A member of the RNA family "narK RNA" from Pseudomonas oryzae, 70 nucleotides long. By type it is a cis-regulatory element. The family's consensus secondary structure is taken from published work.
[Rfam]
RNA sequence: GGCACAGCUCUUGCUGACACUAUGUCAUCGGCAGCCAACGGCGGCUGCUCCACCACGACAAAGGCGUCGC
Numbered sequence: 001g002g003c004a005c006a007g008c009u010c011u012u013g014c015u016g017a018c019a020c021u022a023u024g025u026c027a028u029c030g031g032c033a034g035c036c037a038a039c040g041g042c043g044g045c046u047g048c049u050c051c052a053c054c055a056c057g058a059c060a061a062a063g064g065c066g067u068c069g070c
Stems, first nucleotide, its partner, number of pairs: 030049007
Dot-bracket structure: .............................(((((((......))))))).....................